[Rfam]
This 97-nucleotide RNA belongs to the Rfam family "DUF3800-V RNA". It is annotated as a small RNA.
RNA sequence: GCAACUAAGCGGUAAGACCACUGUGGGUUCCUCUGGUGUUCCCUUCCAUAGGUUAGCUAAGUCAGAGGGCAACGCACCCACAGGGCACGCUCUUUUU
Numbered sequence: 001g002c003a004a005c006u007a008a009g010c011g012g013u014a015a016g017a018c019c020a021c022u023g024u025g026g027g028u029u030c031c032u033c034u035g036g037u038g039u040u041c042c043c044u045u046c047c048a049u050a051g052g053u054u055a056g057c058u059a060a061g062u063c064a065g066a067g068g069g070c071a072a073c074g075c076a077c078c079c080a081c082a083g084g085g086c087a088c089g090c091u092c093u094u095u096u097u
Stems, first nucleotide, its partner, number of pairs: 001096001003094002009090002024080005030074001031067007042056001046052002